The record is an 87-nucleotide RNA sequence from Guptibacillus hwajinpoensis, which matches "BsrC" in Rfam. The 301 nucleotide sequence from Kouji Nakamura has been trimmed to a highly conserved ~85 nucleotide long core to form this family. The source organism's lineage runs through Bacteria, Bacillati, Caryophanales, Guptibacillaceae and Guptibacillus. A search with the family's covariance model found it, with a score of 80 bits.
RNA sequence: GAUCUCUCAAACAACGAAAGCCCUACCUCUCUUCCAUCCUUACGGCUCCGAAGCCGCGCCAGUGUGAGUGAGGAGGAUCAACAGCAA
Numbered sequence: 001g002a003u004c005u006c007u008c009a010a011a012c013a014a015c016g017a018a019a020g021c022c023c024u025a026c027c028u029c030u031c032u033u034c035c036a037u038c039c040u041u042a043c044g045g046c047u048c049c050g051a052a053g054c055c056g057c058g059c060c061a062g063u064g065u066g067a068g069u070g071a072g073g074a075g076g077a078u079c080a081a082c083a084g085c086a087a
Stems, first nucleotide, its partner, number of pairs: 035066002039062002041058001043056005